[Rfam]
RNA sequence: UAUAUUUGCCGCCUGAUUAUGAUCGCCGUAAUCAAUGCAUAAAAAUUAUUUAAAUAAAUAUUGGAAUG
Numbered sequence: 001u002a003u004a005u006u007u008g009c010c011g012c013c014u015g016a017u018u019a020u021g022a023u024c025g026c027c028g029u030a031a032u033c034a035a036u037g038c039a040u041a042a043a044a045a046u047u048a049u050u051u052a053a054a055u056a057a058a059u060a061u062u063g064g065a066a067u068g
Stems, first nucleotide, its partner, number of pairs: 014034006
A member of the RNA family "S15-Flavobacteria ribosomal protein leader", 68 nucleotides long. The family is grouped with related families in Rfam's "Ribosomal Protein S15 Leader clan". Rfam's curators put it in the seed alignment.